[Rfam]
RNA sequence: UUUACUACAUGAAGGCAUCCUCUGAAACCAACUCGUUGUGAGGGGGUACCUGAUGAAAUGUAAA
Numbered sequence: 001u002u003u004a005c006u007a008c009a010u011g012a013a014g015g016c017a018u019c020c021u022c023u024g025a026a027a028c029c030a031a032c033u034c035g036u037u038g039u040g041a042g043g044g045g046g047u048a049c050c051u052g053a054u055g056a057a058a059u060g061u062a063a064a
Base pairs, nucleotide, nucleotide: 001064002063003062004061005060014050015049017047018046019045020044021043022042023041029038030037031036
Selenocysteine insertion sequence 1: a 64-nucleotide RNA sequence from Dissostichus mawsoni. The source organism's lineage runs through Eukaryota, Chordata, Teleostomi, Acanthomorphata and Dissostichus. It is annotated as a cis-regulatory element. A search with the family's covariance model found it, with a score of 40 bits.